A member of the RNA family "Purine riboswitch aptamer" from Clostridiales bacterium oral taxon 876, 102 nucleotides long. Gene Ontology term of the family: purine nucleobase biosynthetic process. The organism belongs to Clostridiales bacterium oral taxon 876, within Bacteria. About the family: Riboswitches are metabolite binding domains within certain messenger RNAs that serve as precision sensors for their corresponding targets.
RNA sequence: AAAUUAAAUAAAUAUUCACUUCGUAUAUGCUUGAAGAUAAGGUUCAAGCGUUUCUACCGGGUUGCCGUAAAUUACCUGACUACGAAUGUUUAAUUACUUAUA
Numbered sequence: 001a002a003a004u005u006a007a008a009u010a011a012a013u014a015u016u017c018a019c020u021u022c023g024u025a026u027a028u029g030c031u032u033g034a035a036g037a038u039a040a041g042g043u044u045c046a047a048g049c050g051u052u053u054c055u056a057c058c059g060g061g062u063u064g065c066c067g068u069a070a071a072u073u074a075c076c077u078g079a080c081u082a083c084g085a086a087u088g089u090u091u092a093a094u095u096a097c098u099u100a101u102a
Stems, first nucleotide, its partner, number of pairs: 020086006029049007058078005064072001